This 162-nucleotide sequence from Parvularcula marina belongs to the Rfam family "FMN riboswitch aptamer (RFN element)". Its family is annotated with FMN binding in the Gene Ontology.
[Rfam]
RNA sequence: UAGAGCUUUCGGGGCGGGGUGAAAGUCCCCACCGGCGGUAAUGGCGACGAAGAUCGCAUAAGCCCGCGAGCGGAAGGCGCUCCUCUUCAGGGGGAAUGCUGAAAGCAGGAUCUGGUGAGAGUCCAGAGCCGACGGUCAUAGUCCGGAUGGUAGAAAGCUUGG
Numbered sequence: 001u002a003g004a005g006c007u008u009u010c011g012g013g014g015c016g017g018g019g020u021g022a023a024a025g026u027c028c029c030c031a032c033c034g035g036c037g038g039u040a041a042u043g044g045c046g047a048c049g050a051a052g053a054u055c056g057c058a059u060a061a062g063c064c065c066g067c068g069a070g071c072g073g074a075a076g077g078c079g080c081u082c083c084u085c086u087u088c089a090g091g092g093g094g095a096a097u098g099c100u101g102a103a104a105g106c107a108g109g110a111u112c113u114g115g116u117g118a119g120a121g122u123c124c125a126g127a128g129c130c131g132a133c134g135g136u137c138a139u140a141g142u143c144c145g146g147a148u149g150g151u152a153g154a155a156a157g158c159u160u161g162g
Stems, first nucleotide, its partner, number of pairs: 003160008017029003031142002033131002035067004062129002070106002111127005133145003